This 85-nucleotide RNA from Drosophila pseudoobscura belongs to the Rfam family "mir-969 microRNA precursor family". The literature on the family includes a 2010 paper in Nat Genet by Berezikov et al., "Evolutionary flux of canonical microRNAs and mirtrons in Drosophila". The family's consensus secondary structure was predicted with RNAalifold. It is one of the family's seed sequences. Taxonomically the source falls in Sophophora (Eukaryota, Panarthropoda, Diptera, Cyclorrhapha).

RNA sequence: CUGUUCUACGUGCGAGUUCCACCAUGCAAGUUUUGAGCGUAUAUGAAUCCAAAAACUUGACACGUUGAGCUCGUGCGUGGUGCAG
Numbered sequence: 001c002u003g004u005u006c007u008a009c010g011u012g013c014g015a016g017u018u019c020c021a022c023c024a025u026g027c028a029a030g031u032u033u034u035g036a037g038c039g040u041a042u043a044u045g046a047a048u049c050c051a052a053a054a055a056c057u058u059g060a061c062a063c064g065u066u067g068a069g070c071u072c073g074u075g076c077g078u079g080g081u082g083c084a085g
Stems, first nucleotide, its partner, number of pairs: 001085004006080005012074008021065002027059008